[Rfam]
RNA sequence: CGGACGGUGAAGCCCCAGGUGCCGUCGGGCUCCAGCGGGACGCGCUCGCCGAAGUAGUCGCCGUCGGCCAGGGUGCCGAGCACGGCCUCGUCCCCGUAGGGGCCGCGGCCGGUCUUGGUGAGCUUGCCGUGCGCGAUCAGGAACACCUGGUCGGCGGGUUGCCCGGCUUCCACGAGCGUGUCGCCGGCCGCGUACUCGCGCUGCACGAACGCGUCGGCCAGCGCCUCCAGCACCUGCUGGUCCUCGUACCCGCGCAGCAGCGGCAGCUCGCCCAGCUCCGGCGGGAUGACGCGGACCUCGGCGCCCGUCGAGAUGAACUCGACGCGCCCGUCACCGACGGUGUACGUCAGCCGUCGGUUGACGCGGUACGUGCCGGCCGACACCUGGACCCAGGGCAGCACGCGCAGCAGCCAGCGCGAGGAGAUGCCCUGCAUCUGGGGGACGGUCUUGGUGGUCGUGGCGAGCUGGCGCGCCGCGUCCGUCCCGAGGCUGAGCCGGGACUGGUCCU
Numbered sequence: 001c002g003g004a005c006g007g008u009g010a011a012g013c014c015c016c017a018g019g020u021g022c023c024g025u026c027g028g029g030c031u032c033c034a035g036c037g038g039g040a041c042g043c044g045c046u047c048g049c050c051g052a053a054g055u056a057g058u059c060g061c062c063g064u065c066g067g068c069c070a071g072g073g074u075g076c077c078g079a080g081c082a083c084g085g086c087c088u089c090g091u092c093c094c095c096g097u098a099g100g101g102g103c104c105g106c107g108g109c110c111g112g113u114c115u116u117g118g119u120g121a122g123c124u125u126g127c128c129g130u131g132c133g134c135g136a137u138c139a140g141g142a143a144c145a146c147c148u149g150g151u152c153g154g155c156g157g158g159u160u161g162c163c164c165g166g167c168u169u170c171c172a173c174g175a176g177c178g179u180g181u182c183g184c185c186g187g188c189c190g191c192g193u194a195c196u197c198g199c200g201c202u203g204c205a206c207g208a209a210c211g212c213g214u215c216g217g218c219c220a221g222c223g224c225c226u227c228c229a230g231c232a233c234c235u236g237c238u239g240g241u242c243c244u245c246g247u248a249c250c251c252g253c254g255c256a257g258c259a260g261c262g263g264c265a266g267c268u269c270g271c272c273c274a275g276c277u278c279c280g281g282c283g284g285g286a287u288g289a290c291g292c293g294g295a296c297c298u299c300g301g302c303g304c305c306c307g308u309c310g311a312g313a314u315g316a317a318c319u320c321g322a323c324g325c326g327c328c329c330g331u332c333a334c335c336g337a338c339g340g341u342g343u344a345c346g347u348c349a350g351c352c353g354u355c356g357g358u359u360g361a362c363g364c365g366g367u368a369c370g371u372g373c374c375g376g377c378c379g380a381c382a383c384c385u386g387g388a389c390c391c392a393g394g395g396c397a398g399c400a401c402g403c404g405c406a407g408c409a410g411c412c413a414g415c416g417c418g419a420g421g422a423g424a425u426g427c428c429c430u431g432c433a434u435c436u437g438g439g440g441g442a443c444g445g446u447c448u449u450g451g452u453g454g455u456c457g458u459g460g461c462g463a464g465c466u467g468g469c470g471c472g473c474c475g476c477g478u479c480c481g482u483c484c485c486g487a488g489g490c491u492g493a494g495c496c497g498g499g500a501c502u503g504g505u506c507c508u
Base pairs, nucleotide, nucleotide: 006390007389008388011385012384018328019327021325022324025322026321027320028319029318031316032315036312039309040308041307042306047303048302049301050300051299052298054233055232058229060227063224064223065111066110067109068108075103077102082097083096084095085094117222119220120219123216129210130209131206133204134203135202140197143196150191153189154188155187157185158184159183160178161177164174165173166171235295237293240290241289242288244286245285249283251281254278256277257276258275260271261270262269329342330341331340332339351379353377354376355375356374357373361371362370363369391431392430393429394428395427396426397425399423401421403418404417405416407415437476439474440473443470444469446467448464449463451461452460477507481501482500484499485498488495
Rfam assigns this 508-nucleotide RNA from Streptomyces mashuensis to the family "Saccharopolyspora sRNA 350".
For this family Rfam cites "Prediction and characterization of small non-coding RNAs related to secondary metabolites in Saccharopolyspora erythraea" (Liu et al., PLoS One, 2013).
Lineage of the source: Bacteria > Bacillati > Actinomycetota > Streptomycetaceae > Streptomyces.